[Rfam]
RNA sequence: AUCGUCAUGUGAUGAGUUUGGAAAAAUCUUAGGACACCUUCCUACACAGCGUUCUUUAGCUGUGAAUGAGAAUGACAUUUCCAUUCUGAUGAUGAU
Numbered sequence: 001a002u003c004g005u006c007a008u009g010u011g012a013u014g015a016g017u018u019u020g021g022a023a024a025a026a027u028c029u030u031a032g033g034a035c036a037c038c039u040u041c042c043u044a045c046a047c048a049g050c051g052u053u054c055u056u057u058a059g060c061u062g063u064g065a066a067u068g069a070g071a072a073u074g075a076c077a078u079u080u081c082c083a084u085u086c087u088g089a090u091g092a093u094g095a096u
Stems, first nucleotide, its partner, number of pairs: 001096007042049002